A member of the RNA family "FMN riboswitch aptamer (RFN element)" from Parablautia intestinalis, 140 nucleotides long.

[Rfam]
RNA sequence: UGGCAUCUUCAGGGCAGGGUGAGAUUCCCGAUUGGCGGUAUAGUCCGCGAGCGUGAAAACGCAGGACUUGGCAGGCGUCCAAGUCAGGAUUUGGUGAGAUUCCAAAACCAACAGUAUAGUCUGGAUAGAAGAAGAUGGGG
Numbered sequence: 001u002g003g004c005a006u007c008u009u010c011a012g013g014g015c016a017g018g019g020u021g022a023g024a025u026u027c028c029c030g031a032u033u034g035g036c037g038g039u040a041u042a043g044u045c046c047g048c049g050a051g052c053g054u055g056a057a058a059a060c061g062c063a064g065g066a067c068u069u070g071g072c073a074g075g076c077g078u079c080c081a082a083g084u085c086a087g088g089a090u091u092u093g094g095u096g097a098g099a100u101u102c103c104a105a106a107a108c109c110a111a112c113a114g115u116a117u118a119g120u121c122u123g124g125a126u127a128g129a130a131g132a133a134g135a136u137g138g139g140g
Stems, first nucleotide, its partner, number of pairs: 004137007017029003031120002033110002035048004043108002053084001090106005112123003